[Rfam]
RNA sequence: UGAUCCUUUUAAGCCAAGGAUCACCUAGCCAACUGACGUUGUUAGUGAACGUUGUACUUGUUCACAAGAAUACAAGCCGAUCGCACGCUUUUUCGUGGUCGGCUUUUUUUUU
Numbered sequence: 001u002g003a004u005c006c007u008u009u010u011a012a013g014c015c016a017a018g019g020a021u022c023a024c025c026u027a028g029c030c031a032a033c034u035g036a037c038g039u040u041g042u043u044a045g046u047g048a049a050c051g052u053u054g055u056a057c058u059u060g061u062u063c064a065c066a067a068g069a070a071u072a073c074a075a076g077c078c079g080a081u082c083g084c085a086c087g088c089u090u091u092u093u094c095g096u097g098g099u100c101g102g103c104u105u106u107u108u109u110u111u112u
Stems, first nucleotide, its partner, number of pairs: 001023006039075004045065007077102008